About this RNA:
The family of this 324-nucleotide RNA from Egretta garzetta is "Small Cajal body-specific RNA 7". NCBI's taxonomy places the organism under Eukaryota, Deuterostomia, Dipnotetrapodomorpha, Aves, Egretta. On this family, see Darzacq et al., EMBO J 2002: "Cajal body-specific small nuclear RNAs: a novel class of 2'-O-methylation and pseudouridylation guide RNAs". Pairs were carried over by alignment from the consensus structure. The family has 18 seed sequences and 570 matches in Rfam 15.1. The match comes from Rfam's covariance-model search (184 bits).
[Rfam]
RNA sequence: UGGAAGUGAUGAAAUAGAGAUAAUUGGAUGUCUCUUUGAAUUGAAUGUGUGUGAUAAAUGGAAUUUAAACCAAGUUAAAUUGGGGGUGGGGUGUGGGGAACGUGUGUGUGCGUGUGCGCGUAUGUGUAGAAAAGGCUUUAAAUGGGGGCACUGAUAAUGCAGUGCUGAUUCCGGAGUGCAUCUGAGGCAUGUUGUUAAUUUCUGGGGUGCAGCUUUACAACAUUGCCAAUGAUUAAAGCCCAAAACAAGCCCACCAGGAAAAGCCUAGGCAUCCUAAAUCUCUAACAGGUUCAUUAAUGAAAGUGAUCCUGUGAUCUGAUCUGA
Numbered sequence: 001u002g003g004a005a006g007u008g009a010u011g012a013a014a015u016a017g018a019g020a021u022a023a024u025u026g027g028a029u030g031u032c033u034c035u036u037u038g039a040a041u042u043g044a045a046u047g048u049g050u051g052u053g054a055u056a057a058a059u060g061g062a063a064u065u066u067a068a069a070c071c072a073a074g075u076u077a078a079a080u081u082g083g084g085g086g087u088g089g090g091g092u093g094u095g096g097g098g099a100a101c102g103u104g105u106g107u108g109u110g111c112g113u114g115u116g117c118g119c120g121u122a123u124g125u126g127u128a129g130a131a132a133a134g135g136c137u138u139u140a141a142a143u144g145g146g147g148g149c150a151c152u153g154a155u156a157a158u159g160c161a162g163u164g165c166u167g168a169u170u171c172c173g174g175a176g177u178g179c180a181u182c183u184g185a186g187g188c189a190u191g192u193u194g195u196u197a198a199u200u201u202c203u204g205g206g207g208u209g210c211a212g213c214u215u216u217a218c219a220a221c222a223u224u225g226c227c228a229a230u231g232a233u234u235a236a237a238g239c240c241c242a243a244a245a246c247a248a249g250c251c252c253a254c255c256a257g258g259a260a261a262a263g264c265c266u267a268g269g270c271a272u273c274c275u276a277a278a279u280c281u282c283u284a285a286c287a288g289g290u291u292c293a294u295u296a297a298u299g300a301a302a303g304u305g306a307u308c309c310u311g312u313g314a315u316c317u318g319a320u321c322u323g324a
Base pairs, nucleotide, nucleotide: 001323002322003321004320190222191221192220193219194218195217197215199212200211202209